[Rfam]
RNA sequence: GUUACCCAUCGUGAUGUGGUAUUUGCAGUCAUAAUUGCUUGAUUGCAUAGGGCAAUAGUCUUAUUGCCCUUUUAUUUUU
Numbered sequence: 001g002u003u004a005c006c007c008a009u010c011g012u013g014a015u016g017u018g019g020u021a022u023u024u025g026c027a028g029u030c031a032u033a034a035u036u037g038c039u040u041g042a043u044u045g046c047a048u049a050g051g052g053c054a055a056u057a058g059u060c061u062u063a064u065u066g067c068c069c070u071u072u073u074a075u076u077u078u079u
Stems, first nucleotide, its partner, number of pairs: 025046007049070009